This 127-nucleotide RNA from Actinacidiphila reveromycinica belongs to the Rfam family "Glycine riboswitch aptamer". Taxonomically the source falls in Actinacidiphila (Bacteria, Bacillati, Kitasatosporales, Streptomycetaceae).

RNA sequence: GUCACUCUGGAAAGCAGGACCUGUCCCGGAAGCAGCGCGGCCGCCGGGACGCGUCCUCACCGACGGUGAAAGCCGCCCCGUGGCCGGGGCGGUGAAGCUCUCAGGUUCUGAUGACAGAGGGGGAGGC
Numbered sequence: 001g002u003c004a005c006u007c008u009g010g011a012a013a014g015c016a017g018g019a020c021c022u023g024u025c026c027c028g029g030a031a032g033c034a035g036c037g038c039g040g041c042c043g044c045c046g047g048g049a050c051g052c053g054u055c056c057u058c059a060c061c062g063a064c065g066g067u068g069a070a071a072g073c074c075g076c077c078c079c080g081u082g083g084c085c086g087g088g089g090c091g092g093u094g095a096a097g098c099u100c101u102c103a104g105g106u107u108c109u110g111a112u113g114a115c116a117g118a119g120g121g122g123g124a125g126g127c
Stems, first nucleotide, its partner, number of pairs: 002122002005119005016057004059106003062102002066100001068098001072093007

Rfam links the family to the GO term glycine biosynthetic process. The match comes from Rfam's covariance-model search (38 bits).